[Rfam]
RNA sequence: UUAUAGCAUGAUUUAGCUAUUGAACUGUUCUGUCACUGUUAGAGAACAAUUUGUUCUUUGACAUAGACGGACAAAACAGUUAAAUAGCUAAAGCGUUCUAUAAC
Number, nucleotide and partner (000 for none) at each position: 001u103002u102003a101004u100005a099006g098007c000008a000009u000010g000011a000012u092013u091014u090015a089016g088017c087018u086019a085020u084021u083022g000023a081024a080025c079026u078027g077028u076029u065030c000031u063032g062033u061034c060035a059036c000037u000038g000039u000040u000041a000042g000043a000044g000045a055046a054047c053048a052049a000050u000051u000052u048053g047054u046055u045056c000057u000058u000059u035060g034061a033062c032063a031064u000065a029066g000067a000068c000069g000070g000071a000072c000073a000074a000075a000076a028077c027078a026079g025080u024081u023082a000083a021084a020085u019086a018087g017088c016089u015090a014091a013092a012093g000094c000095g000096u000097u000098c006099u005100a004101u003102a002103a001104c000
A member of the RNA family "mir-8517 microRNA precursor family" from Plutella xylostella, 104 nucleotides long. The source organism's lineage runs through Eukaryota, Insecta, Aparaglossata, Yponomeutoidea and Plutella. Its family is annotated with miRNA-mediated post-transcriptional gene silencing and RISC complex in the Gene Ontology.